[Rfam]
Nucleotides: 128
Base pairs, nucleotide, nucleotide: 005124006123007122008121009120010119017029018028019027031108032107033098034097035064036063037062038061059096060095067074068073078094079093080092081091082090100111101110102109
Number, partner (000 for none) and nucleotide at each position: 001000a002000g003000u004000u005124g006123u007122c008121u009120u010119c011000g012000g013000g014000g015000c016000g017029g018028g019027g020000c021000g022000a023000a024000a025000u026000u027019c028018c029017c030000c031108a032107c033098c034097g035064a036063c037062g038061g039000u040000a041000a042000u043000g044000g045000g046000a047000u048000u049000c050000a051000a052000u053000c054000c055000a056000c057000a058000a059096g060095c061038c062037c063036g064035u065000g066000a067074g068073c069000g070000a071000a072000a073068g074067u075000u076000g077000a078094u079093u080092c081091g082090g083000u084000g085000a086000g087000a088000u089000u090082c091081c092080g093079a094078a095060g096059c097034c098033g099000a100111c101110g102109g103000u104000a105000c106000a107032g108031u109102c110101c111100g112000g113000a114000u115000g116000a117000g118000a119010g120009a121008a122007g123006a124005u125000u126000u127000g128000u